A member of the RNA family "c-di-GMP-I riboswitch aptamer" from Candidatus Electrothrix aarhusensis, 79 nucleotides long. NCBI's taxonomy places the organism under Bacteria, Thermodesulfobacteriota, Desulfobulbia, Desulfobulbaceae, Candidatus Electrothrix. The match comes from Rfam's covariance-model search (54 bits).
RNA sequence: GUUGAAUAAAGCCACAACCGUCGUGAGACGGUGUCGGAAAGCCACGGGUCUCCAGCGGGGAGAUAGCCGGGUCACCUAC
Numbered sequence: 001g002u003u004g005a006a007u008a009a010a011g012c013c014a015c016a017a018c019c020g021u022c023g024u025g026a027g028a029c030g031g032u033g034u035c036g037g038a039a040a041g042c043c044a045c046g047g048g049u050c051u052c053c054a055g056c057g058g059g060g061a062g063a064u065a066g067c068c069g070g071g072u073c074a075c076c077u078a079c
Stems, first nucleotide, its partner, number of pairs: 012037002017032006041072003045069003048064006